[Rfam]
RNA sequence: CUCUUAUCGAGAGCGGUGGAGGGACUGGCCCUGUGAAACCCGGCAACCAGUAUAUUUUUAUAUACAAUGGUGCUAAAUCCUGCAACUAGAAAUAGUUGAAAGAUGAGUA
Dot-bracket structure: ..((((((....(.(((...(((.[.[[)))......))))((((.((.(((..........)))...))))))...(]].]((((((....))))))..)))))))..
A member of the RNA family "SAM riboswitch aptamer (S box leader)" from Asaccharospora irregularis, 109 nucleotides long. Gene Ontology term of the family: regulation of gene expression. The family's consensus secondary structure is taken from published work.